[Rfam]
RNA sequence: GCCGGGGUAGCUCAGUUGGUAGAGCAGCGGACUGAAAAUCCGCGUGUCGGCGGUUCAAUCCCGUCCCCCGGCA
Numbered sequence: 001g002c003c004g005g006g007g008u009a010g011c012u013c014a015g016u017u018g019g020u021a022g023a024g025c026a027g028c029g030g031a032c033u034g035a036a037a038a039u040c041c042g043c044g045u046g047u048c049g050g051c052g053g054u055u056c057a058a059u060c061c062c063g064u065c066c067c068c069c070g071g072c073a
Stems, first nucleotide, its partner, number of pairs: 001072007010025004027043005049065005
RNA: tRNA
Organism: Candidatus Desulfovibrio kirbyi